[Rfam]
Rfam assigns this 58-nucleotide sequence from Streptomyces qinglanensis to the family "msiK RNA". Taxonomically the source falls in Streptomyces (Bacteria, Actinomycetota, Actinomycetes, Kitasatosporales). Pairs were carried over by alignment from the consensus structure, which is taken from published work. It is annotated as a cis-regulatory element.
RNA sequence: CUACACCUCCCUUUACGACGGAUCGUCCGGCACGUACCUGCCGGUGAAGGAGAAACGA
Numbered sequence: 001c002u003a004c005a006c007c008u009c010c011c012u013u014u015a016c017g018a019c020g021g022a023u024c025g026u027c028c029g030g031c032a033c034g035u036a037c038c039u040g041c042c043g044g045u046g047a048a049g050g051a052g053a054a055a056c057g058a
Stems, first nucleotide, its partner, number of pairs: 009050002012048004027044006

A search with the family's covariance model found it, with a score of 60 bits.